[Rfam]
RNA: ZMP/ZTP riboswitch aptamer (pfl RNA motif)
RNA sequence: CCGCAGGGCCGUGACUGGCGCGCUGGGAUGGGACCGACCAUCGGGGAGCGGCCUGUGAACUGUGUGCCGUGCGCCUGGGCCGACCCG
Numbered sequence: 001c002c003g004c005a006g007g008g009c010c011g012u013g014a015c016u017g018g019c020g021c022g023c024u025g026g027g028a029u030g031g032g033a034c035c036g037a038c039c040a041u042c043g044g045g046g047a048g049c050g051g052c053c054u055g056u057g058a059a060c061u062g063u064g065u066g067c068c069g070u071g072c073g074c075c076u077g078g079g080c081c082g083a084c085c086c087g
Stems, first nucleotide, its partner, number of pairs: 003056003007053006015045002017075005028041004066080003